[Rfam]
The record is a 79-nucleotide sequence from Syntrophotalea acetylenivorans, which matches "c-di-GMP-I-GGC riboswitch aptamer" in Rfam. A reference for the family is Weinberg et al. (2017), "Bioinformatic analysis of riboswitch structures uncovers variant classes with altered ligand specificity", Proc Natl Acad Sci U S A. The match comes from Rfam's covariance-model search (67 bits).

RNA sequence: CUCGUCAAUAGCAAACCCGCAGCAAUGCGGGGACGCAAAGCCAUGGGUCCAUAACAUAUGGAUCGCCAGGUUGCCGAAG
Numbered sequence: 001c002u003c004g005u006c007a008a009u010a011g012c013a014a015a016c017c018c019g020c021a022g023c024a025a026u027g028c029g030g031g032g033a034c035g036c037a038a039a040g041c042c043a044u045g046g047g048u049c050c051a052u053a054a055c056a057u058a059u060g061g062a063u064c065g066c067c068a069g070g071u072u073g074c075c076g077a078a079g
Stems, first nucleotide, its partner, number of pairs: 001079001003076002011036002016031006034065001039072004044068003047063003